[Rfam]
Rfam assigns this 74-nucleotide sequence from a Pyrinomonadaceae bacterium to the family "tRNA". The source organism's lineage runs through Bacteria, Pseudomonadati, Acidobacteriota, Blastocatellia and Pyrinomonadaceae. The match comes from Rfam's covariance-model search (71 bits).
RNA sequence: GCGGCUAUAGUUCAGUUGGUUAGAACGCCUGAUUGUGGUUCAGGAGGUCGUGGGUUCGAGCCCCACUAGCCGCC
Numbered sequence: 001g002c003g004g005c006u007a008u009a010g011u012u013c014a015g016u017u018g019g020u021u022a023g024a025a026c027g028c029c030u031g032a033u034u035g036u037g038g039u040u041c042a043g044g045a046g047g048u049c050g051u052g053g054g055u056u057c058g059a060g061c062c063c064c065a066c067u068a069g070c071c072g073c074c
Stems, first nucleotide, its partner, number of pairs: 001073007010026004028044005050066005